The record is a 225-nucleotide RNA from Streptomyces malaysiensis, which matches "Actinobacteria sRNA Ms_IGR-5" in Rfam. Rfam classes the family as a small RNA. Taxonomically the source falls in Streptomyces (Bacteria, Actinomycetota, Actinomycetes, Kitasatosporales).

RNA sequence: ACACGAGAAGGGAGGUGGUUCGGCAGAUGUAUGAAAUCCGGACGCGUGAGGUGACUGCGGGCUAGUCGUCCGUCGUCGCGCUCAGCGCAUUCGCCGGACAGGCGCACGAGACAUGUGCGUGGCCGGCCAAUCCCAAGCAGUCACCCGACCCGCGGGUCGCCGGUACGUCCGACCGGCCCCCUUCCGCCUCAGGGCGUCAGGGGAGAGACCCGCGGGUCGUCUGCU
Numbered sequence: 001a002c003a004c005g006a007g008a009a010g011g012g013a014g015g016u017g018g019u020u021c022g023g024c025a026g027a028u029g030u031a032u033g034a035a036a037u038c039c040g041g042a043c044g045c046g047u048g049a050g051g052u053g054a055c056u057g058c059g060g061g062c063u064a065g066u067c068g069u070c071c072g073u074c075g076u077c078g079c080g081c082u083c084a085g086c087g088c089a090u091u092c093g094c095c096g097g098a099c100a101g102g103c104g105c106a107c108g109a110g111a112c113a114u115g116u117g118c119g120u121g122g123c124c125g126g127c128c129a130a131u132c133c134c135a136a137g138c139a140g141u142c143a144c145c146c147g148a149c150c151c152g153c154g155g156g157u158c159g160c161c162g163g164u165a166c167g168u169c170c171g172a173c174c175g176g177c178c179c180c181c182u183u184c185c186g187c188c189u190c191a192g193g194g195c196g197u198c199a200g201g202g203g204a205g206a207g208a209c210c211c212g213c214g215g216g217u218c219g220u221c222u223g224c225u
Base pairs, nucleotide, nucleotide: 015058016057017056018055019054060128061127062126063125065123066122067119068118069117071115072114073113146219147218148217149216150215151214152213153212154211155210156209157208158207159177160176161175162174163173164172